Record summary: Shown here is a 78-nucleotide RNA sequence from Nannospalax galili, a member of the family "mir-450 microRNA precursor family". The organism belongs to Nannospalax, within Eukaryota. The match comes from Rfam's covariance-model search (82 bits). Its family is annotated with RISC complex and miRNA-mediated post-transcriptional gene silencing in the Gene Ontology. The base pairs follow the family's consensus structure, which was predicted with RNAalifold. For this family Rfam cites "MicroRNA transcriptome in the newborn mouse ovaries determined by massive parallel sequencing" (Ahn et al., Mol Hum Reprod, 2010).

RNA sequence: ACUUAACUGGUUUUGCGAUGUGUUCCUAAUAUGUACCAUGACUAUAUUGGGGACAUUUUGCAUGCAAAGUUUUGUAUC
Number, nucleotide and partner (000 for none) at each position: 001a000002c000003u000004u000005a071006a070007c069008u068009g000010g000011u000012u000013u000014u062015g061016c060017g059018a058019u000020g056021u055022g054023u053024u052025c051026c050027u049028a048029a047030u046031a045032u044033g043034u000035a000036c000037c000038a000039u000040g000041a000042c000043u033044a032045u031046a030047u029048u028049g027050g026051g025052g024053a023054c022055a021056u020057u000058u018059u017060g016061c015062a014063u000064g000065c000066a000067a000068a008069g007070u006071u005072u000073u000074g000075u000076a000077u000078c000